[Rfam]
RNA sequence: UAGUUGUAGCUAAAUUGAUUAUGAAGUUUUACUGGCCGGUUGUCGUUGACCUCAGUCGAUAAAUCUGCUUACUGAACUUCAUAUAUUC
Number, nucleotide and partner (000 for none) at each position: 001u000002a000003g000004u000005u000006g000007u000008a000009g000010c000011u000012a000013a000014a000015u000016u000017g000018a000019u000020u000021a082022u081023g080024a079025a078026g077027u076028u075029u000030u000031a000032c000033u000034g069035g068036c067037c000038g065039g064040u063041u062042g060043u059044c058045g057046u000047u000048g000049a000050c000051c000052u000053c000054a000055g000056u000057c045058g044059a043060u042061a000062a041063a040064u039065c038066u000067g036068c035069u034070u000071a000072c000073u000074g000075a028076a027077c026078u025079u024080c023081a022082u021083a000084u000085a000086u000087u000088c000